[Rfam]
RNA sequence: GUAUGAAAUGAUGGCAUACCAUCUUUCGGGACUGACUCAUCCUGGAGAUAUUUCAGUACUGUACUGAUCAUAC
Number, nucleotide and partner (000 for none) at each position: 001g073002u072003a071004u070005g069006a068007a000008a000009u000010g000011a000012u000013g000014g000015c000016a000017u000018a000019c000020c000021a000022u000023c000024u000025u000026u000027c000028g000029g000030g000031a000032c000033u000034g000035a000036c000037u000038c000039a000040u000041c000042c000043u000044g000045g000046a000047g000048a000049u000050a000051u000052u000053u000054c000055a000056g000057u000058a000059c000060u000061g000062u000063a000064c000065u000066g000067a000068u006069c005070a004071u003072a002073c001
This 73-nucleotide sequence from Chanos chanos belongs to the Rfam family "Small nucleolar RNA SNORD2".
The base pairs follow the family's consensus structure, which was predicted with WAR.
Gene Ontology terms of the family: RNA processing and nucleolus.